About this RNA:
Rfam assigns this 169-nucleotide RNA from Clostridiales bacterium KLE1615 to the family "Clostridiales-1 RNA". The family has 194 seed sequences and 1,172 matches in Rfam 15.1. By type it is a small RNA. The match comes from Rfam's covariance-model search (116 bits).
RNA sequence: UGAUGCCAAGGGUCCAAACUCAAAAGCUGAUCGUGCUUGCACGAUGAAGAUUUUGAGCUUGAGACCCGCAAAAACAUGAGGAUGCAGCGAUUUUCAAAGAAAAUCAGCGAAUCCGAAUGUUUUUAGAAUUGCUAGAGUUACAAAGUAACGGAGCAAUUCGUAGGCAUUA
Numbered sequence: 001u002g003a004u005g006c007c008a009a010g011g012g013u014c015c016a017a018a019c020u021c022a023a024a025a026g027c028u029g030a031u032c033g034u035g036c037u038u039g040c041a042c043g044a045u046g047a048a049g050a051u052u053u054u055g056a057g058c059u060u061g062a063g064a065c066c067c068g069c070a071a072a073a074a075c076a077u078g079a080g081g082a083u084g085c086a087g088c089g090a091u092u093u094u095c096a097a098a099g100a101a102a103a104u105c106a107g108c109g110a111a112u113c114c115g116a117a118u119g120u121u122u123u124u125a126g127a128a129u130u131g132c133u134a135g136a137g138u139u140a141c142a143a144a145g146u147a148a149c150g151g152a153g154c155a156a157u158u159c160g161u162a163g164g165c166a167u168u169a
Stems, first nucleotide, its partner, number of pairs: 001169007011066004017059001019057007027049002031044005070124008080114004087108002089105007126159007137149004